[Rfam]
Nucleotides: 173
Base pairs, nucleotide, nucleotide: 011158012157013156014155025153026152027151028150029149030148035083084138085137086136092113093112094111095110096109097108098107116132117131118130119129
Number, partner (000 for none) and nucleotide at each position: 001000a002000c003000g004000c005000u006000u007000c008000g009000a010000g011158c012157g013156c014155c015000g016000u017000a018000g019000g020000c021000a022000g023000g024000a025153g026152c027151g028150g029149g030148g031000g032000a033000c034000c035083c036000a037000a038000g039000g040000u041000a042000g043000g044000u045000g046000c047000c048000g049000g050000g051000c052000c053000c054000g055000g056000u057000c058000g059000u060000c061000g062000g063000g064000a065000g066000a067000c068000g069000a070000g071000c072000g073000g074000a075000a076000c077000c078000g079000g080000c081000u082000c083035g084138g085137g086136g087000u088000g089000a090000a091000g092113c093112c094111g095110c096109g097108c098107g099000c100000c101000a102000c103000c104000c105000g106000g107098c108097g109096c110095g111094c112093g113092g114000c115000c116132g117131g118130g119129c120000a121000c122000u123000c124000a125000c126000c127000a128000g129119g130118c131117c132116c133000g134000a135000a136086c137085c138084c139000g140000a141000c142000a143000g144000c145000u146000c147000a148030c149029c150028u151027c152026g153025c154000a155014g156013g157012c158011g159000u160000c161000g162000g163000u164000g165000a166000g167000g168000a169000g170000a171000u172000c173000c
Notes: The record is a 173-nucleotide RNA from Streptomyces rubrolavendulae, which matches "c-di-AMP riboswitch aptamer (ydaO/yuaA leader)" in Rfam. The organism belongs to Streptomyces, within Bacteria. About the family: This family represents a conserved RNA structure found upstream of the ydaO and yuaA genes in Bacillus subtilis and related genes in other bacteria.